[Rfam]
RNA sequence: GGAGGUGGUAAGCUUAUGUGUACGGGCAAACGCACGAAAAAAAAAUAAAGUCAUGUAUUUGGCUUUUUUUUAUUUUUAUUUUAUACCCGUGGGAAGGUCUGAGGAAAGCCAUGAUGCUCUUACCGAGUAACUCGUUUAUUUACGAGUGUGAGUAACCAGAAACAAAUGGUAGGGGAUUAGGCUUGUUCGUUGACGGAUACCCUUCAAGGUAUUCUGAGGAUUGCCCUUUUCUCCUUUUAUUGAAAUGCUUGCGGGUUUUAGUACUAUGCAGUGCAAUACAUAAGGCUGGCAUUGCCAGUAACUCGAUUCAGACUACUCUUCCCCCUCC
Numbered sequence: 001g002g003a004g005g006u007g008g009u010a011a012g013c014u015u016a017u018g019u020g021u022a023c024g025g026g027c028a029a030a031c032g033c034a035c036g037a038a039a040a041a042a043a044a045a046u047a048a049a050g051u052c053a054u055g056u057a058u059u060u061g062g063c064u065u066u067u068u069u070u071u072a073u074u075u076u077u078a079u080u081u082u083a084u085a086c087c088c089g090u091g092g093g094a095a096g097g098u099c100u101g102a103g104g105a106a107a108g109c110c111a112u113g114a115u116g117c118u119c120u121u122a123c124c125g126a127g128u129a130a131c132u133c134g135u136u137u138a139u140u141u142a143c144g145a146g147u148g149u150g151a152g153u154a155a156c157c158a159g160a161a162a163c164a165a166a167u168g169g170u171a172g173g174g175g176a177u178u179a180g181g182c183u184u185g186u187u188c189g190u191u192g193a194c195g196g197a198u199a200c201c202c203u204u205c206a207a208g209g210u211a212u213u214c215u216g217a218g219g220a221u222u223g224c225c226c227u228u229u230u231c232u233c234c235u236u237u238u239a240u241u242g243a244a245a246u247g248c249u250u251g252c253g254g255g256u257u258u259u260a261g262u263a264c265u266a267u268g269c270a271g272u273g274c275a276a277u278a279c280a281u282a283a284g285g286c287u288g289g290c291a292u293u294g295c296c297a298g299u300a301a302c303u304c305g306a307u308u309c310a311g312a313c314u315a316c317u318c319u320u321c322c323c324c325c326u327c328c
Stems, first nucleotide, its partner, number of pairs: 001328004008321001010319001013284007022090005037077005099311005107257004115129005130147006148252007164238003285299005
RNA: Nuclear RNase P